A member of the RNA family "Bacillus sRNA ncr1015" from Cohnella sp. OV330, 120 nucleotides long.

RNA sequence: AUGUAAGAUGCGUUAUCUUUGUCCUAAUCUAUAUUAAAGCGAAGCAGAUUGAUUCUAUCAUCGAAUCUGCCUUUCCGCAAUACAAAAGAACCUGGCGAUUGACUCCAGGUUCUUUUUUUG
Numbered sequence: 001a002u003g004u005a006a007g008a009u010g011c012g013u014u015a016u017c018u019u020u021g022u023c024c025u026a027a028u029c030u031a032u033a034u035u036a037a038a039g040c041g042a043a044g045c046a047g048a049u050u051g052a053u054u055c056u057a058u059c060a061u062c063g064a065a066u067c068u069g070c071c072u073u074u075c076c077g078c079a080a081u082a083c084a085a086a087a088g089a090a091c092c093u094g095g096c097g098a099u100u101g102a103c104u105c106c107a108g109g110u111u112c113u114u115u116u117u118u119u120g
Base pairs, nucleotide, nucleotide: 036074037073038072039071042066044062084116085115086114087113088112089111090110091109092108093107094106095105